[Rfam]
RNA sequence: GCUGAAAAUGUCAAAGUUUCUCGUAUAAUGCCGGGGAUAUGGCCCGGAAGUAUCUACCCAAAAACCAUAAAUUUUUGGACUACGAGUUAGCGUAAUUCAUGA
Numbered sequence: 001g002c003u004g005a006a007a008a009u010g011u012c013a014a015a016g017u018u019u020c021u022c023g024u025a026u027a028a029u030g031c032c033g034g035g036g037a038u039a040u041g042g043c044c045c046g047g048a049a050g051u052a053u054c055u056a057c058c059c060a061a062a063a064a065c066c067a068u069a070a071a072u073u074u075u076u077g078g079a080c081u082a083c084g085a086g087u088u089a090g091c092g093u094a095a096u097u098c099a100u101g102a
Stems, first nucleotide, its partner, number of pairs: 020086006029049001031047005058078007
Purine riboswitch aptamer: a 102-nucleotide RNA from Paenibacillus sp. OAS669. It scores 83 bits against the family's covariance model.